[Rfam]
RNA sequence: UGGAGAAUAAAGCUAUCUGGUGAUACUCACGGACUUCAAAUCCGCUGGCGGGGCAGCUGGCUGUCUCGCGGAGAGUUCGAUUCUCUCAUUCUCUC
Numbered sequence: 001u002g003g004a005g006a007a008u009a010a011a012g013c014u015a016u017c018u019g020g021u022g023a024u025a026c027u028c029a030c031g032g033a034c035u036u037c038a039a040a041u042c043c044g045c046u047g048g049c050g051g052g053g054c055a056g057c058u059g060g061c062u063g064u065c066u067c068g069c070g071g072a073g074a075g076u077u078c079g080a081u082u083c084u085c086u087c088a089u090u091c092u093c094u095c
Stems, first nucleotide, its partner, number of pairs: 002094007012027001014025004030044004048069007072086004
Shown here is a 95-nucleotide sequence from Candidatus Campylobacter infans, a member of the family "Selenocysteine transfer RNA". Taxonomically the source falls in Campylobacter (Bacteria, Campylobacterota, Campylobacterales, Campylobacteraceae).